[Rfam]
RNA sequence: AUAACAUUCGGACCUUCGGUCUACUGAGAAAUUUCACCAGCUCGAUGGAAGAUCUUCCCUUUGCCUC
Numbered sequence: 001a002u003a004a005c006a007u008u009c010g011g012a013c014c015u016u017c018g019g020u021c022u023a024c025u026g027a028g029a030a031a032u033u034u035c036a037c038c039a040g041c042u043c044g045a046u047g048g049a050a051g052a053u054c055u056u057c058c059c060u061u062u063g064c065c066u067c
Base pairs, nucleotide, nucleotide: 005063006062010058011057012056016052017051020049021048022047023046025044026043027042028041
RNA: mir-2774 microRNA precursor family